[Rfam]
RNA: Small nucleolar RNA SNORA32
Organism: Castor canadensis
RNA sequence: CAGUCAUUACCAAGGCUUUUAGAAUGCAGUUUCUCACUUGCUAUGGUCAUGACCACAAAAAAUUUUCCCACUAGGUUUUCUGCACGCUGCUUUGUUAGCAGUUAAUCUGGGGACAGUA
Numbered sequence: 001c002a003g004u005c006a007u008u009a010c011c012a013a014g015g016c017u018u019u020u021a022g023a024a025u026g027c028a029g030u031u032u033c034u035c036a037c038u039u040g041c042u043a044u045g046g047u048c049a050u051g052a053c054c055a056c057a058a059a060a061a062a063u064u065u066u067c068c069c070a071c072u073a074g075g076u077u078u079u080c081u082g083c084a085c086g087c088u089g090c091u092u093u094g095u096u097a098g099c100a101g102u103u104a105a106u107c108u109g110g111g112g113a114c115a116g117u118a
Base pairs, nucleotide, nucleotide: 003053004052005051006050007049010046011045012044026041027040028039029038067111068110069109070108074107075106076105077104086099087098